[Rfam]
RNA: Small nucleolar RNA SNORD100
RNA sequence: GCUGUACAUGAUGAAAAUUUGGCUCCCUCUACUGAAUUCUGUGAGGAAAAGGCCAACAUGUUACCCAAACUUUCUGAGUUGCAGC
Numbered sequence: 001g002c003u004g005u006a007c008a009u010g011a012u013g014a015a016a017a018u019u020u021g022g023c024u025c026c027c028u029c030u031a032c033u034g035a036a037u038u039c040u041g042u043g044a045g046g047a048a049a050a051g052g053c054c055a056a057c058a059u060g061u062u063a064c065c066c067a068a069a070c071u072u073u074c075u076g077a078g079u080u081g082c083a084g085c
Base pairs, nucleotide, nucleotide: 001085002084003083004082005081006080